[Rfam]
RNA: SAM riboswitch aptamer (S box leader)
RNA sequence: UCCUUAUCAAGAGCGAUGGAGGGAAUAGGCCCUAUGAAGUCCAGCAACCGGUUUUACACGGUGCUAAAUCCUACAGAUAUGAUAAAUAUCUGGAAGAUGAGGU
Numbered sequence: 001u002c003c004u005u006a007u008c009a010a011g012a013g014c015g016a017u018g019g020a021g022g023g024a025a026u027a028g029g030c031c032c033u034a035u036g037a038a039g040u041c042c043a044g045c046a047a048c049c050g051g052u053u054u055u056a057c058a059c060g061g062u063g064c065u066a067a068a069u070c071c072u073a074c075a076g077a078u079a080u081g082a083u084a085a086a087u088a089u090c091u092g093g094a095a096g097a098u099g100a101g102g103u
Stems, first nucleotide, its partner, number of pairs: 002102007013042001015041003021032003026073004043065004048061002050057001069095001074092006